Background
The family of this 155-nucleotide RNA from Caloramator australicus is "glmS glucosamine-6-phosphate activated ribozyme aptamer". Gene Ontology terms of the family: catalytic activity and regulation of gene expression. The match comes from Rfam's covariance-model search (107 bits). This entry contains a glucosamine-6-phosphate activated ribozyme that is found in the mRNA for GlmS. GlmS is an enzyme that uses fructose-6-phosphate and glutamine to generate glucosamine-6-phosphate.

RNA sequence: GCAAAAUUAUAAGCGCCGGGACUUAUUGGGUUGCCAAUAAGUUGACGAGGUCAGGGUUUAUCGAGUAAUCGGCGGAUGCCCUGCGGCUGACCACCGUUAGCUACCCUACAAAACCGAAAAGCGAUUUUCGGGACAAAGGUGGAGCGGGUCAAAAA
Number, nucleotide and partner (000 for none) at each position: 001g000002c000003a000004a000005a000006a000007u000008u000009a000010u000011a000012a000013g000014c000015g000016c000017c000018g000019g000020g043021a042022c041023u040024u039025a038026u037027u036028g000029g034030g000031u000032u000033g000034c029035c000036a027037a026038u025039a024040a023041g022042u021043u020044g000045a000046c000047g000048a000049g000050g000051u000052c083053a082054g081055g080056g079057u000058u000059u000060a000061u072062c071063g070064a069065g000066u000067a000068a000069u064070c063071g062072g061073c000074g000075g000076a000077u000078g000079c056080c055081c054082u053083g052084c096085g095086g094087c000088u000089g000090a000091c000092c000093a000094c086095c085096g084097u000098u000099a000100g145101c144102u143103a000104c141105c000106c139107u000108a000109c000110a000111a000112a000113a000114c131115c130116g129117a128118a127119a126120a125121g000122c000123g000124a000125u120126u119127u118128u117129c116130g115131g114132g000133a000134c000135a000136a000137a000138g000139g106140u000141g104142g000143a102144g101145c100146g000147g000148g000149u000150c000151a000152a000153a000154a000155a000